Shown here is a 368-nucleotide RNA, a member of the family "Bacterial RNase P class A". It is annotated as a ribozyme.

RNA sequence: UGAGAUAGCUGGAUGGUUGCUGUGUGUAAAAACAUAGAGGAAAGUCCGGGCUUUAUGGAACAAUGAUGCUGGCUAACCGCCAGAGAGGAUAAAACCUUAUGGAAAGUGCCACAGAAAACAAACCGCCUGUUAAAGGGUAAAGGUGAAAAGGUAAGGUAAGAGCUUACCGGGUAAGCAGCAAUGGUUACCGCAUGGCAAACCCCAUCAAAAGCAAGACCAUAUAGGUGCACAAAAGCUUUUAGCUUAAGCAAGUUCCGCGCUAGUGUACGGGUAGGUCGCAAGAGCUAAAUGGUAACAUUUAGCCAAGAUGAAUAACCAUCAGAGAGCGUAAGCUUUCACAGAACCCGGCUUAUAGGCUAUCUCAUUAA
Number, nucleotide and partner (000 for none) at each position: 001u364002g363003a362004g361005a360006u359007a358008g357009c356010u355011g353012g320013a319014u318015g317016g316017u315018u314019g000020c037021u036022g035023u034024g033025u032026g000027u000028a000029a000030a000031a000032a025033c024034a023035u022036a021037g020038a000039g000040g000041a000042a351043a350044g349045u000046c348047c347048g346049g345050g344051c211052u210053u209054u208055a000056u000057g000058g000059a000060a000061c000062a253063a000064u207065g206066a205067u204068g203069c083070u082071g081072g080073c079074u000075a000076a000077c000078c000079g073080c072081c071082a070083g069084a100085g098086a097087g096088g095089a000090u000091a000092a000093a000094a000095c088096c087097u086098u085099a000100u084101g202102g201103a000104a000105a000106g200107u199108g196109c195110c194111a000112c000113a000114g000115a000116a000117a000118a000119c000120a000121a000122a000123c142124c000125g138126c137127c136128u135129g000130u000131u000132a000133a000134a000135g128136g127137g126138u125139a000140a000141a000142g123143g000144u000145g000146a000147a000148a000149a000150g168151g167152u166153a165154a164155g163156g000157u000158a000159a000160g000161a000162g000163c155164u154165u153166a152167c151168c150169g191170g189171g188172u187173a186174a185175g000176c183177a182178g000179c000180a000181a000182u177183g176184g000185u174186u173187a172188c171189c170190g000191c169192a000193u000194g110195g109196c108197a000198a000199a107200c106201c102202c101203c068204a067205u066206c065207a064208a054209a053210a052211g051212c000213a000214a000215g277216a276217c275218c274219a000220u000221a000222u000223a000224g000225g268226u267227g266228c265229a264230c263231a000232a000233a000234a000235g000236c000237u000238u000239u000240u000241a000242g000243c000244u000245u000246a000247a261248g260249c259250a000251a000252g000253u062254u000255c000256c000257g000258c000259g249260c248261u247262a000263g230264u229265g228266u227267a226268c225269g000270g000271g000272u000273a000274g218275g217276u216277c215278g000279c000280a000281a000282g000283a000284g303285c302286u301287a300288a299289a298290u297291g296292g000293u000294a000295a000296c291297a290298u289299u288300u287301a286302g285303c284304c000305a000306a000307g000308a000309u000310g000311a000312a000313u000314a018315a017316c016317c015318a014319u013320c012321a000322g000323a000324g000325a000326g000327c000328g000329u000330a000331a000332g000333c000334u000335u000336u000337c000338a000339c000340a000341g000342a000343a000344c050345c049346c048347g047348g046349c044350u043351u042352a000353u011354a000355g010356g009357c008358u007359a006360u005361c004362u003363c002364a001365u000366u000367a000368a000
Pairs were carried over by alignment from the consensus structure, which is taken from published work.